Background:
transfer-messenger RNA: a 376-nucleotide sequence from Corynebacterium efficiens.
[Rfam]
RNA sequence: GGGGCUGACAUGGUUUCGACUACGUUGAUUGAGCCAGGGGAAGCGUGCCGGUGAAGGCUGGAGACCACCGUGAGCGUCGCAGCAAACCAAUAAGCGCCGAGAAGACUCAGCGCGACUACGCCCUCGCUGCCUAAGUAGCGACCGCGUGUCUGUCAGCCCGGGGAUGUCCCUGCCCCGGAUGCUGGCAUCGACUAAGGGACUUGCUAUCCAACCGCGUCAGCGGGGUUGGAUGGGACUUCUACCGCUGACUGGGCCCAUCAUCCGGAUGUGUUCGUCCUAGCCGGAGGGCCAAGCAGAGAUCGCUGCACGAACUGCGCACGGAGAAGCCCUGGCAAAGUAGCGUAGGACCCGGGUUCAAUUCCCGGCAGCUCCACGA
Numbered sequence: 001g002g003g004g005c006u007g008a009c010a011u012g013g014u015u016u017c018g019a020c021u022a023c024g025u026u027g028a029u030u031g032a033g034c035c036a037g038g039g040g041a042a043g044c045g046u047g048c049c050g051g052u053g054a055a056g057g058c059u060g061g062a063g064a065c066c067a068c069c070g071u072g073a074g075c076g077u078c079g080c081a082g083c084a085a086a087c088c089a090a091u092a093a094g095c096g097c098c099g100a101g102a103a104g105a106c107u108c109a110g111c112g113c114g115a116c117u118a119c120g121c122c123c124u125c126g127c128u129g130c131c132u133a134a135g136u137a138g139c140g141a142c143c144g145c146g147u148g149u150c151u152g153u154c155a156g157c158c159c160g161g162g163g164a165u166g167u168c169c170c171u172g173c174c175c176c177g178g179a180u181g182c183u184g185g186c187a188u189c190g191a192c193u194a195a196g197g198g199a200c201u202u203g204c205u206a207u208c209c210a211a212c213c214g215c216g217u218c219a220g221c222g223g224g225g226u227u228g229g230a231u232g233g234g235a236c237u238u239c240u241a242c243c244g245c246u247g248a249c250u251g252g253g254c255c256c257a258u259c260a261u262c263c264g265g266a267u268g269u270g271u272u273c274g275u276c277c278u279a280g281c282c283g284g285a286g287g288g289c290c291a292a293g294c295a296g297a298g299a300u301c302g303c304u305g306c307a308c309g310a311a312c313u314g315c316g317c318a319c320g321g322a323g324a325a326g327c328c329c330u331g332g333c334a335a336a337g338u339a340g341c342g343u344a345g346g347a348c349c350c351g352g353g354u355u356c357a358a359u360u361c362c363c364g365g366c367a368g369c370u371c372c373a374c375g376a
Stems, first nucleotide, its partner, number of pairs: 001372007020345008029336001033333007044320005049070005057083004120142001122140001124138001126136002151187006158178004166200006204233009216249006252290005265281001267279001270312004277305001349365005
Rfam's curators put it in the seed alignment. Taxonomically the source falls in Corynebacterium efficiens (Bacteria, Bacillati, Mycobacteriales, Corynebacterium).